[Rfam]
RNA: SAM riboswitch aptamer (S box leader)
RNA sequence: AGCUCAUCCAGAGGGGCAGAGGGAUCGGCCCGCAGAAGCCCCGGCAACCGGCGCCGGCCGUUCGUGAUCGUGUUCGCGAGGCCCCGGCGAGAAAGGUGCCAAUUCCGACCCGCCAGCGGGACAGAUGAGGA
Numbered sequence: 001a002g003c004u005c006a007u008c009c010a011g012a013g014g015g016g017c018a019g020a021g022g023g024a025u026c027g028g029c030c031c032g033c034a035g036a037a038g039c040c041c042c043g044g045c046a047a048c049c050g051g052c053g054c055c056g057g058c059c060g061u062u063c064g065u066g067a068u069c070g071u072g073u074u075c076g077c078g079a080g081g082c083c084c085c086g087g088c089g090a091g092a093a094a095g096g097u098g099c100c101a102a103u104u105c106c107g108a109c110c111c112g113c114c115a116g117c118g119g120g121a122c123a124g125a126u127g128a129g130g131a
Stems, first nucleotide, its partner, number of pairs: 003129006013042005021031003025108004043100004048096002104123001109120004